[Rfam]
A member of the RNA family "mir-210 microRNA precursor family" from Mastacembelus armatus, 98 nucleotides long.
RNA sequence: CCCAAAACCAGGUUAGCCGCUGUCACACGCACAGUGGAACUGACAACUGGCACAAUGUGCGUUAGUCAGUGGCUUACCUGGUUUUAGAGCUCAGACAC
Number, nucleotide and partner (000 for none) at each position: 001c000002c000003c000004a000005a084006a083007a082008c081009c080010a079011g078012g077013u000014u000015a074016g073017c072018c071019g070020c069021u068022g067023u000024c065025a063026c000027a000028c061029g060030c059031a058032c057033a056034g000035u054036g053037g000038a000039a000040c000041u000042g000043a000044c000045a000046a000047c000048u000049g000050g000051c000052a000053c036054a035055a000056u033057g032058u031059g030060c029061g028062u000063u025064a000065g024066u000067c022068a021069g020070u019071g018072g017073c016074u015075u000076a000077c012078c011079u010080g009081g008082u007083u006084u005085u000086a000087g000088a000089g000090c000091u000092c000093a000094g000095a000096c000097a000098c000
The family's consensus secondary structure was predicted with WAR.
On this family, see Chen et al., Genes Dev 2005: "The developmental miRNA profiles of zebrafish as determined by small RNA cloning".